[Rfam]
This 106-nucleotide RNA from a Deinococcales bacterium belongs to the Rfam family "ZMP/ZTP riboswitch aptamer (pfl RNA motif)".
RNA sequence: UUUAAGCGCGGUAACUGGCGAAGAACGUAGGUCCACAAAGUGGGCAAACUACGGGGAAACCGCGAAAAAUAAGCACUCGAGGGGGCCGCUCGCCUGGGUUUGCCUC
Numbered sequence: 001u002u003u004a005a006g007c008g009c010g011g012u013a014a015c016u017g018g019c020g021a022a023g024a025a026c027g028u029a030g031g032u033c034c035a036c037a038a039a040g041u042g043g044g045c046a047a048a049c050u051a052c053g054g055g056g057a058a059a060c061c062g063c064g065a066a067a068a069a070u071a072a073g074c075a076c077u078c079g080a081g082g083g084g085g086c087c088g089c090u091c092g093c094c095u096g097g098g099u100u101u102g103c104c105u106c
Stems, first nucleotide, its partner, number of pairs: 003068001007064006015056002017094005040052004083101005